[Rfam]
RNA sequence: GAUUGGCCGUAGCUGAGUGGUUUCUUCAAGUAAAGCAUCUCCUAGCUACUCAAGUGGUUCAGGACCUGCUGGUACUUUCUAGCCCUUUU
Numbered sequence: 001g002a003u004u005g006g007c008c009g010u011a012g013c014u015g016a017g018u019g020g021u022u023u024c025u026u027c028a029a030g031u032a033a034a035g036c037a038u039c040u041c042c043u044a045g046c047u048a049c050u051c052a053a054g055u056g057g058u059u060c061a062g063g064a065c066c067u068g069c070u071g072g073u074a075c076u077u078u079c080u081a082g083c084c085c086u087u088u089u
Stems, first nucleotide, its partner, number of pairs: 001084001003082004012073004017069004025063002029059001

The record is an 89-nucleotide RNA from Felis catus, which matches "Vault RNA" in Rfam. Lineage of the source: Eukaryota > Chordata > Tetrapoda > Boreoeutheria > Felis. Rfam 15.1 lists 2,873 matches to the family in 431 species. Pairs were carried over by alignment from the consensus structure, which is taken from published work. By type it is a non-coding RNA gene.